[Rfam]
RNA: ALIL pseudoknot
Organism: Roseovarius litorisediminis
RNA sequence: GGCGUAUUUUGCGCAGGCGGAGCUCGACCGCCCGUUUCGGAAAUGAUUGCUUUUAUCAAAGAACAUCGUGGGGUGUGUGGGGUCGAGCCGAUCUGCCGUGUUUUACAGAUCGCCCCU
Numbered sequence: 001g002g003c004g005u006a007u008u009u010u011g012c013g014c015a016g017g018c019g020g021a022g023c024u025c026g027a028c029c030g031c032c033c034g035u036u037u038c039g040g041a042a043a044u045g046a047u048u049g050c051u052u053u054u055a056u057c058a059a060a061g062a063a064c065a066u067c068g069u070g071g072g073g074u075g076u077g078u079g080g081g082g083u084c085g086a087g088c089c090g091a092u093c094u095g096c097c098g099u100g101u102u103u104u105a106c107a108g109a110u111c112g113c114c115c116c117u
Base pairs, nucleotide, nucleotide: 016032017031018030019029020028079116080115081114082113089112090111092109093108094107095106098103